The family of this 58-nucleotide RNA sequence from Mycobacterium sp. E740 is "Actino-pnp RNA".
[Rfam]
RNA sequence: CGCGGUCUUCGGUAGUGGCUGCCGGACGAGUUGCCGGCAGCUUCGAUCGACGGCCGUA
Numbered sequence: 001c002g003c004g005g006u007c008u009u010c011g012g013u014a015g016u017g018g019c020u021g022c023c024g025g026a027c028g029a030g031u032u033g034c035c036g037g038c039a040g041c042u043u044c045g046a047u048c049g050a051c052g053g054c055c056g057u058a
Stems, first nucleotide, its partner, number of pairs: 002057006009050005017042009

A search with the family's covariance model found it, with a score of 57 bits.